A member of the RNA family "mir-1902 microRNA precursor family" from Erinaceus europaeus, 80 nucleotides long.
Rfam links the family to the GO terms RISC complex and miRNA-mediated post-transcriptional gene silencing.
Rfam 15.1 lists 1,188 matches to the family in 123 species.
It scores 88 bits against the family's covariance model.
RNA sequence: GUUUAUUUUGAAGAGUGUUUGCUGUAUAAUUGGAUCUAAUAAAAUGUUUAGAGGUGCAGUAGGCAUGACUUUGGGUAGAU
Numbered sequence: 001g002u003u004u005a006u007u008u009u010g011a012a013g014a015g016u017g018u019u020u021g022c023u024g025u026a027u028a029a030u031u032g033g034a035u036c037u038a039a040u041a042a043a044a045u046g047u048u049u050a051g052a053g054g055u056g057c058a059g060u061a062g063g064c065a066u067g068a069c070u071u072u073g074g075g076u077a078g079a080u
Stems, first nucleotide, its partner, number of pairs: 001080007009073005015066013031050005